pan motif: a 95-nucleotide RNA sequence from Bacillus gobiensis.

[Rfam]
RNA sequence: UGGGCGGUAUCCGAUUAUGGAGCUGCACCUUGUAUUGACGAAAUGUAAAAAAGCAGUCUGCCUUGAUCCGAAAAAAGAUGGACAGGGACAGAGGG
Numbered sequence: 001u002g003g004g005c006g007g008u009a010u011c012c013g014a015u016u017a018u019g020g021a022g023c024u025g026c027a028c029c030u031u032g033u034a035u036u037g038a039c040g041a042a043a044u045g046u047a048a049a050a051a052a053g054c055a056g057u058c059u060g061c062c063u064u065g066a067u068c069c070g071a072a073a074a075a076a077g078a079u080g081g082a083c084a085g086g087g088a089c090a091g092a093g094g095g
Stems, first nucleotide, its partner, number of pairs: 002029002004026005010021002058091003061087005067082003

It is annotated as a cis-regulatory element.